[Rfam]
RNA sequence: GGGCGGAACCGGGCCCCUCUGGCGCCGCGUGUGGCUACCCCCUCCAGGCCAUGCGCAGCGUGAUGUCGGACCGCAUCG
Dot-bracket structure: .....(..((((.........((((.((((((((((..........)))))))))).))))....))))..)......
RNA: terC RNA
Organism: Novosphingobium arvoryzae